[Rfam]
RNA sequence: AGCAGGGAAGCAGUUAAGACUUGCAGUGAUGUUUAGGGAAAUGAACACAUGAACAUCACUUUAAGUCUGUGCUGACUCCA
Number, nucleotide and partner (000 for none) at each position: 001a000002g000003c000004a000005g000006g000007g000008a000009a000010g000011c000012a000013g000014u000015u000016a000017a068018g067019a066020c065021u064022u063023g062024c000025a000026g059027u058028g057029a056030u055031g054032u053033u052034u051035a050036g000037g000038g000039a000040a000041a000042u000043g000044a000045a000046c000047a000048c000049a000050u035051g034052a033053a032054c031055a030056u029057c028058a027059c026060u000061u000062u023063a022064a021065g020066u019067c018068u017069g000070u000071g000072c000073u000074g000075a000076c000077u000078c000079c000080a000